[Rfam]
RNA: Small nucleolar RNA snR43
RNA sequence: CACUCCUGUUUCUGCCCCGUCUACUUUCUUCCCACAGUUUAUCGGGUUCUGGUUAUGGAGGAGAUCAAGCUAUUGACUGCGGCGACGACACUCUAAUCAUUCAAUCAUUCAAUUCGUCGUUGUCGUAUGUUGGUGGAUCAUGGGGUGCCUAUCGAGAAUAGACAUUUGGACGCUGAUGGUUUGCGUCUGGAUGGUCAUGGCCCCCUACAUCU
Numbered sequence: 001c002a003c004u005c006c007u008g009u010u011u012c013u014g015c016c017c018c019g020u021c022u023a024c025u026u027u028c029u030u031c032c033c034a035c036a037g038u039u040u041a042u043c044g045g046g047u048u049c050u051g052g053u054u055a056u057g058g059a060g061g062a063g064a065u066c067a068a069g070c071u072a073u074u075g076a077c078u079g080c081g082g083c084g085a086c087g088a089c090a091c092u093c094u095a096a097u098c099a100u101u102c103a104a105u106c107a108u109u110c111a112a113u114u115c116g117u118c119g120u121u122g123u124c125g126u127a128u129g130u131u132g133g134u135g136g137a138u139c140a141u142g143g144g145g146u147g148c149c150u151a152u153c154g155a156g157a158a159u160a161g162a163c164a165u166u167u168g169g170a171c172g173c174u175g176a177u178g179g180u181u182u183g184c185g186u187c188u189g190g191a192u193g194g195u196c197a198u199g200g201c202c203c204c205c206u207a208c209a210u211c212u
Stems, first nucleotide, its partner, number of pairs: 003060004016046004020041001023038003070136008079128001080125010142205004148200002163193004169187005